[Rfam]
RNA sequence: AAUGCAAGUCGUUCUAUCGCCGUAUCUUAAUGGUAAGGAGGAAAGUCCGGGCAACAUAGAGCAUCUCGCUUCCUAACGGGAAGGAGUUUAGGAUUGAAUACCUAAACGACAGAAAGUGCCACAGAAAAUAUACCGCCACGAAGCAUUACGCUAUGGGGUAAGGGUGAAAACGUGAGGUAAGAGCUCACGAUCAUGCUAGGUGACUAGCAUUUUGGUAAACCUCGGGAGUUGAAAGACCAAAUAGGCUAACGCAUGUAGGGCUGCUCGCUCGAUGUUAGUGGGUAGGUCGUUAGAGAUGAACGGCAACGUUUAGACUAGAUUAAUGAUAGAAUACUGAUUUAUCAGGAACAGAACCCGGCUUAUAGGCUUGCAUUUUUU
Numbered sequence: 001a002a003u004g005c006a007a008g009u010c011g012u013u014c015u016a017u018c019g020c021c022g023u024a025u026c027u028u029a030a031u032g033g034u035a036a037g038g039a040g041g042a043a044a045g046u047c048c049g050g051g052c053a054a055c056a057u058a059g060a061g062c063a064u065c066u067c068g069c070u071u072c073c074u075a076a077c078g079g080g081a082a083g084g085a086g087u088u089u090a091g092g093a094u095u096g097a098a099u100a101c102c103u104a105a106a107c108g109a110c111a112g113a114a115a116g117u118g119c120c121a122c123a124g125a126a127a128a129u130a131u132a133c134c135g136c137c138a139c140g141a142a143g144c145a146u147u148a149c150g151c152u153a154u155g156g157g158g159u160a161a162g163g164g165u166g167a168a169a170a171c172g173u174g175a176g177g178u179a180a181g182a183g184c185u186c187a188c189g190a191u192c193a194u195g196c197u198a199g200g201u202g203a204c205u206a207g208c209a210u211u212u213u214g215g216u217a218a219a220c221c222u223c224g225g226g227a228g229u230u231g232a233a234a235g236a237c238c239a240a241a242u243a244g245g246c247u248a249a250c251g252c253a254u255g256u257a258g259g260g261c262u263g264c265u266c267g268c269u270c271g272a273u274g275u276u277a278g279u280g281g282g283u284a285g286g287u288c289g290u291u292a293g294a295g296a297u298g299a300a301c302g303g304c305a306a307c308g309u310u311u312a313g314a315c316u317a318g319a320u321u322a323a324u325g326a327u328a329g330a331a332u333a334c335u336g337a338u339u340u341a342u343c344a345g346g347a348a349c350a351g352a353a354c355c356c357g358g359c360u361u362a363u364a365g366g367c368u369u370g371c372a373u374u375u376u377u378u
Stems, first nucleotide, its partner, number of pairs: 001374010011363001012331007020038002023035004043361003047358005052231004059266004064227005069083005084110001086107007111222002116220002118216003133163002135159003139155002142152002171189006193210007235288004245279006258270004297312006
The record is a 378-nucleotide RNA from Pedobacter polaris, which matches "Bacterial RNase P class A" in Rfam. The organism belongs to Pedobacter, within Bacteria. By type it is a ribozyme. Its family is annotated with dimeric ribonuclease P complex, ribonuclease P activity and tRNA processing in the Gene Ontology. About the family: Ribonuclease P (RNase P) is a ubiquitous endoribonuclease, found in archaea, bacteria and eukarya as well as chloroplasts and mitochondria.